[Rfam]
Rfam assigns this 128-nucleotide RNA from Peromyscus maniculatus to the family "Small nucleolar RNA SNORA44". The match comes from Rfam's covariance-model search (89 bits). Lineage of the source: Eukaryota > Bilateria > Craniata > Boreoeutheria > Peromyscus maniculatus. Rfam 15.1 lists 1,056 matches to the family in 599 species. About the family: ACA44 is a member of the H/ACA class of snoRNA that guide the sites of modification of uridines to pseudouridines. On this family, see Huttenhofer et al., EMBO J 2001: "RNomics: an experimental approach that identifies 201 candidates for novel, small, non-messenger RNAs in mouse".
RNA sequence: CACCAUGUUUCCAAGAGCUUUGGCUGGGGUAUGGUCAUGGGCUCUCCAACUACAUCACCGAGUAACGUGGAGACACUCUGACAGCUCAGGUCAGCACAGUGCCUGCAGCUGCUACUCAUCUUAGAGAG
Numbered sequence: 001c002a003c004c005a006u007g008u009u010u011c012c013a014a015g016a017g018c019u020u021u022g023g024c025u026g027g028g029g030u031a032u033g034g035u036c037a038u039g040g041g042c043u044c045u046c047c048a049a050c051u052a053c054a055u056c057a058c059c060g061a062g063u064a065a066c067g068u069g070g071a072g073a074c075a076c077u078c079u080g081a082c083a084g085c086u087c088a089g090g091u092c093a094g095c096a097c098a099g100u101g102c103c104u105g106c107a108g109c110u111g112c113u114a115c116u117c118a119u120c121u122u123a124g125a126g127a128g
Stems, first nucleotide, its partner, number of pairs: 011040002017035003021031002069121002084112002087105004